[Rfam]
RNA sequence: CCUGCACCUGGACAGAAAGACCCUAUGAAGCUUUACUGUAGCCUGUAAUUGGCUCCGGGCUGUGUUUGCGCAGGAUAGGUGGGAGGCAUUGAGAUUGCCCUUGUGGGGGCAAAGGAGCCAACGGUGAGAUACCACUCUAACACAGCUAGGAUUCUAACUUGGAGCCGUAAUCCGGCACGAGAACAGUUGCAGGUGGGCAGUUUGACUGGGGCGGUCGCCUCCCAAAUGGUAACGGAGGCGCGCAAAGGUUCCCUCAGCACGCUUGGAAACCGUGCAUAGAGUGUAAAGGCAUAAAGGGAGCUUGACUGCAAGAGCGACAACUCAAGCAGGGACGAAAGUCGGCCUUAGUGAUCCGACGGCACUGAGUGGAAGGGCCGUCGCUCAACGGAUAAAAGUUACUCUAGGGAUAACAGGCUGAUCUCCUCCAAGAGUUCACAUCGACGAGGAGGUUUGGCACCUCGAUGUCGGCUCAUCGCAACCUGGGGCGGAAGUACGUCCCAAGGGUUGGGCUGUUCGCCCAUUAAAGCGGUACGUGAGCUGGGUUCAGAACGUCGUGAGACAGUUCGGUCCAUAUCCGGUGCAGGCGCA
Numbered sequence: 001c002c003u004g005c006a007c008c009u010g011g012a013c014a015g016a017a018a019g020a021c022c023c024u025a026u027g028a029a030g031c032u033u034u035a036c037u038g039u040a041g042c043c044u045g046u047a048a049u050u051g052g053c054u055c056c057g058g059g060c061u062g063u064g065u066u067u068g069c070g071c072a073g074g075a076u077a078g079g080u081g082g083g084a085g086g087c088a089u090u091g092a093g094a095u096u097g098c099c100c101u102u103g104u105g106g107g108g109g110c111a112a113a114g115g116a117g118c119c120a121a122c123g124g125u126g127a128g129a130u131a132c133c134a135c136u137c138u139a140a141c142a143c144a145g146c147u148a149g150g151a152u153u154c155u156a157a158c159u160u161g162g163a164g165c166c167g168u169a170a171u172c173c174g175g176c177a178c179g180a181g182a183a184c185a186g187u188u189g190c191a192g193g194u195g196g197g198c199a200g201u202u203u204g205a206c207u208g209g210g211g212c213g214g215u216c217g218c219c220u221c222c223c224a225a226a227u228g229g230u231a232a233c234g235g236a237g238g239c240g241c242g243c244a245a246a247g248g249u250u251c252c253c254u255c256a257g258c259a260c261g262c263u264u265g266g267a268a269a270c271c272g273u274g275c276a277u278a279g280a281g282u283g284u285a286a287a288g289g290c291a292u293a294a295a296g297g298g299a300g301c302u303u304g305a306c307u308g309c310a311a312g313a314g315c316g317a318c319a320a321c322u323c324a325a326g327c328a329g330g331g332a333c334g335a336a337a338g339u340c341g342g343c344c345u346u347a348g349u350g351a352u353c354c355g356a357c358g359g360c361a362c363u364g365a366g367u368g369g370a371a372g373g374g375c376c377g378u379c380g381c382u383c384a385a386c387g388g389a390u391a392a393a394a395g396u397u398a399c400u401c402u403a404g405g406g407a408u409a410a411c412a413g414g415c416u417g418a419u420c421u422c423c424u425c426c427a428a429g430a431g432u433u434c435a436c437a438u439c440g441a442c443g444a445g446g447a448g449g450u451u452u453g454g455c456a457c458c459u460c461g462a463u464g465u466c467g468g469c470u471c472a473u474c475g476c477a478a479c480c481u482g483g484g485g486c487g488g489a490a491g492u493a494c495g496u497c498c499c500a501a502g503g504g505u506u507g508g509g510c511u512g513u514u515c516g517c518c519c520a521u522u523a524a525a526g527c528g529g530u531a532c533g534u535g536a537g538c539u540g541g542g543u544u545c546a547g548a549a550c551g552u553c554g555u556g557a558g559a560c561a562g563u564u565c566g567g568u569c570c571a572u573a574u575c576c577g578g579u580g581c582a583g584g585c586g587c588a
Stems, first nucleotide, its partner, number of pairs: 001584008010576003015570001022405004027401002029397005035201004042193007051154002054151003058147009068137001078136005085119003095112007158181003162178001164176004204216004217239006240386001242343002248301006254280002257275005281290002306329004312323003331340003354380007362373002414455003418452001419449007429439002466541001467539004471533001472530005479504002482499006506520005547565004551560003
RNA: Bacterial large subunit ribosomal RNA, nucleotides 2027 to 2614